[Rfam]
RNA sequence: AUAGGUUAUGGCGACAUCACGCCAACGACACUGUAUGGAAAGUUGGUUGGUGGCGCAUGUGCCGUGAGUGGUGUACUAAUGAUGGCUUUACCAGUGUCUGUGAUGGCGAGCAAU
Numbered sequence: 001a002u003a004g005g006u007u008a009u010g011g012c013g014a015c016a017u018c019a020c021g022c023c024a025a026c027g028a029c030a031c032u033g034u035a036u037g038g039a040a041a042g043u044u045g046g047u048u049g050g051u052g053g054c055g056c057a058u059g060u061g062c063c064g065u066g067a068g069u070g071g072u073g074u075a076c077u078a079a080u081g082a083u084g085g086c087u088u089u090a091c092c093a094g095u096g097u098c099u100g101u102g103a104u105g106g107c108g109a110g111c112a113a114u
Base pairs, nucleotide, nucleotide: 001114002113004111007108009106011104014101015100016099019097020096021095022094037077038076040074049063050062051061
The record is a 114-nucleotide sequence from Paramuricea clavata, which matches "Potassium channel RNA editing signal" in Rfam. The match comes from Rfam's covariance-model search (63 bits). NCBI's taxonomy places the organism under Eukaryota, Metazoa, Anthozoa, Malacalcyonacea, Paramuricea.